[Rfam]
RNA sequence: GGCACUUACGUAUGUUUUUGACUUUCCUUUUGUGGACUAAAACUUAAACGAACAGGUGCAAAAAAUGAAUCCUCUUUUGCAACCUAGAGCUCAUUGUUUGGUAUGAGUUUUGAUGCAUAAAAGAAGGGAUUUU
Numbered sequence: 001g002g003c004a005c006u007u008a009c010g011u012a013u014g015u016u017u018u019u020g021a022c023u024u025u026c027c028u029u030u031u032g033u034g035g036a037c038u039a040a041a042a043c044u045u046a047a048a049c050g051a052a053c054a055g056g057u058g059c060a061a062a063a064a065a066u067g068a069a070u071c072c073u074c075u076u077u078u079g080c081a082a083c084c085u086a087g088a089g090c091u092c093a094u095u096g097u098u099u100g101g102u103a104u105g106a107g108u109u110u111u112g113a114u115g116c117a118u119a120a121a122a123g124a125a126g127g128g129a130u131u132u133u
Stems, first nucleotide, its partner, number of pairs: 002059006009050001011048001014043005020037001026034001069130005075124004085112010